L4-Archaeoglobi ribosomal protein leades: a 100-nucleotide sequence from Halorhabdus utahensis.
For this family Rfam cites "Discovery of 20 novel ribosomal leader candidates in bacteria and archaea" (Eckert and Weinberg, BMC Microbiol, 2020).
The organism belongs to Halorhabdus utahensis, within Archaea.
[Rfam]
RNA sequence: CUGAUGGGCGCGUCCGGGUCAAUUGCGGCAUGCAACACCCGAUCUCCCUCGCCGUUCCGGGCGACCGGACGAUAAAGGAGGGGGAACGCGUCACCGUCAG
Numbered sequence: 001c002u003g004a005u006g007g008g009c010g011c012g013u014c015c016g017g018g019u020c021a022a023u024u025g026c027g028g029c030a031u032g033c034a035a036c037a038c039c040c041g042a043u044c045u046c047c048c049u050c051g052c053c054g055u056u057c058c059g060g061g062c063g064a065c066c067g068g069a070c071g072a073u074a075a076a077g078g079a080g081g082g083g084g085a086a087c088g089c090g091u092c093a094c095c096g097u098c099a100g
Stems, first nucleotide, its partner, number of pairs: 001100005008091006015041004023035005044084007